A member of the RNA family "MIR821 microRNA precursor family" from Oryza punctata, 271 nucleotides long.
The source organism's lineage runs through Eukaryota, Poales, Oryzoideae, Oryzeae and Oryza.
The base pairs follow the family's consensus structure, which was predicted with RNAalifold.
On this family, see Luo et al., FEBS Lett 2006: "Rice embryogenic calli express a unique set of microRNAs, suggesting regulatory roles of microRNAs in plant post-embryogenic development".
Its family is annotated with miRNA-mediated post-transcriptional gene silencing and RISC complex in the Gene Ontology.
RNA sequence: GAUUUCAACUGAAAAAGUCAUCAACAACAAAGUUGUAUAACUCAUCAAGAUCUAUAACUUCUAUUUUGGUCAUUUCUUCAUCCGACAAAGUGAUUUGUAACAUUGUUCACAAAAUAUACAUAUCUCUUAUAGUUUUAUAAACUAAGAGAGGUAUGUAAAUUUUAAGAAUAUGUUACGAUCACUUUGUCGGAUGAAGAAAUGACCAAAAUAGAAGUUAUAGAUCUUGAUGAGUUAUACAACUUUGUUGUUGAUGACUUUUUCAGCUGAAAUC
Numbered sequence: 001g002a003u004u005u006c007a008a009c010u011g012a013a014a015a016a017g018u019c020a021u022c023a024a025c026a027a028c029a030a031a032g033u034u035g036u037a038u039a040a041c042u043c044a045u046c047a048a049g050a051u052c053u054a055u056a057a058c059u060u061c062u063a064u065u066u067u068g069g070u071c072a073u074u075u076c077u078u079c080a081u082c083c084g085a086c087a088a089a090g091u092g093a094u095u096u097g098u099a100a101c102a103u104u105g106u107u108c109a110c111a112a113a114a115u116a117u118a119c120a121u122a123u124c125u126c127u128u129a130u131a132g133u134u135u136u137a138u139a140a141a142c143u144a145a146g147a148g149a150g151g152u153a154u155g156u157a158a159a160u161u162u163u164a165a166g167a168a169u170a171u172g173u174u175a176c177g178a179u180c181a182c183u184u185u186g187u188c189g190g191a192u193g194a195a196g197a198a199a200u201g202a203c204c205a206a207a208a209u210a211g212a213a214g215u216u217a218u219a220g221a222u223c224u225u226g227a228u229g230a231g232u233u234a235u236a237c238a239a240c241u242u243u244g245u246u247g248u249u250g251a252u253g254a255c256u257u258u259u260u261c262a263g264c265u266g267a268a269a270u271c
Stems, first nucleotide, its partner, number of pairs: 014258008023249002026246002030242013044228010055217013069203007077195005083189010095178006102171002105169004111163003115159001118156006132142004